Rfam assigns this 148-nucleotide sequence from Aneurinibacillus danicus to the family "FMN riboswitch aptamer (RFN element)". Gene Ontology term of the family: FMN binding. The base pairs follow the family's consensus structure, which is taken from published work. Taxonomically the source falls in Aneurinibacillus (Bacteria, Bacilli, Caryophanales, Paenibacillaceae). It scores 114 bits against the family's covariance model.
[Rfam]
RNA sequence: GUAAUCCUUCGGGGCAGGGUGAAAAUCCCGACCGGCGGUGAUAGAGGCAUGAAGUCUCUUCAGUCCGUGAGCUGCGGUUUCAUAGAGCCAAUGCUGACCCGGUGUAAAUCCGGGACCGACAGUAUAGUCUGGAUGGGAGAAGGAUGUA
Numbered sequence: 001g002u003a004a005u006c007c008u009u010c011g012g013g014g015c016a017g018g019g020u021g022a023a024a025a026u027c028c029c030g031a032c033c034g035g036c037g038g039u040g041a042u043a044g045a046g047g048c049a050u051g052a053a054g055u056c057u058c059u060u061c062a063g064u065c066c067g068u069g070a071g072c073u074g075c076g077g078u079u080u081c082a083u084a085g086a087g088c089c090a091a092u093g094c095u096g097a098c099c100c101g102g103u104g105u106a107a108a109u110c111c112g113g114g115a116c117c118g119a120c121a122g123u124a125u126a127g128u129c130u131g132g133a134u135g136g137g138a139g140a141a142g143g144a145u146g147u148a
Base pairs, nucleotide, nucleotide: 004145005144006143007142008141009140010139017029018028019027031128032127033118034117035068036067037066038065063116064115071094072093098114099113100112101111102110120131121130122129